[Rfam]
Rfam assigns this 71-nucleotide RNA from Flavobacterium subsaxonicum to the family "DUF805 RNA". Clan: DUF805 clan.
RNA sequence: AAUUUGUGGAGUCCGGAGCCCACUAUAAAAAACGGGGCGAAAUUCUGAAAAGCCAAACGAGUAAGAGCAAA
Dot-bracket structure: .....((((..........))))............(((....[[.......))).........]]......
About this RNA: Lineage of the source: Bacteria > Pseudomonadati > Bacteroidota > Flavobacteriia > Flavobacterium subsaxonicum. By type it is a cis-regulatory element.